[Rfam]
RNA sequence: CGACGCGGUGGGCCACGACGUAAAAAGCUUUAAGUCCUUUGGGAAGAAGUAACCAACCAAACCCAACCCGCCCGGGUGGGCCUCAGCAGGCCCCCGUGCGCAUGCGCCUGCGUGCGCACGCGAGGGGUCGCGGGGCCGUCACCCGGACGGGUGAGGUUGGCCGUCCGGGCUGGAACUCGCCCCCGUUGCCUGGCAUAUGCUCGCGAAACCGAACUUCAGACUGUGACGGCCCCCGCCGGGAUUGCCAUCCCGAGCGAGGGCCUGACCACCAAGGAAGCGAAACCCUUCCCG
Numbered sequence: 001c002g003a004c005g006c007g008g009u010g011g012g013c014c015a016c017g018a019c020g021u022a023a024a025a026a027g028c029u030u031u032a033a034g035u036c037c038u039u040u041g042g043g044a045a046g047a048a049g050u051a052a053c054c055a056a057c058c059a060a061a062c063c064c065a066a067c068c069c070g071c072c073c074g075g076g077u078g079g080g081c082c083u084c085a086g087c088a089g090g091c092c093c094c095c096g097u098g099c100g101c102a103u104g105c106g107c108c109u110g111c112g113u114g115c116g117c118a119c120g121c122g123a124g125g126g127g128u129c130g131c132g133g134g135g136c137c138g139u140c141a142c143c144c145g146g147a148c149g150g151g152u153g154a155g156g157u158u159g160g161c162c163g164u165c166c167g168g169g170c171u172g173g174a175a176c177u178c179g180c181c182c183c184c185g186u187u188g189c190c191u192g193g194c195a196u197a198u199g200c201u202c203g204c205g206a207a208a209c210c211g212a213a214c215u216u217c218a219g220a221c222u223g224u225g226a227c228g229g230c231c232c233c234c235g236c237c238g239g240g241a242u243u244g245c246c247a248u249c250c251c252g253a254g255c256g257a258g259g260g261c262c263u264g265a266c267c268a269c270c271a272a273g274g275a276a277g278c279g280a281a282a283c284c285c286u287u288c289c290c291g
Stems, first nucleotide, its partner, number of pairs: 007270004016130004139154006169204002172202002228262005234256003238251004273289005
RNA: Streptomyces sRNA 4677